About this RNA: SAM (S-adenosyl methionine) riboswitch aptamer: a 115-nucleotide RNA sequence from Stackebrandtia albiflava. Rfam links the family to the GO terms regulation of gene expression and S-adenosylmethionine metabolic process.
RNA sequence: GGUCAUGAGUGACAGCGACAAGCCCUGGCUUGCUGUCCGGCAACCCAACUCCGCGUGGGGUGCCCCAGGUGAGGACCGGGUCCGGCGUCACGAGGCGGCGGGCAAACCGCGGGCC
Dot-bracket structure: ((((....(.((((((....((......)).)))))))(((..(((.((.....)).))).))).........))))..(((((.((((....)))).)))))............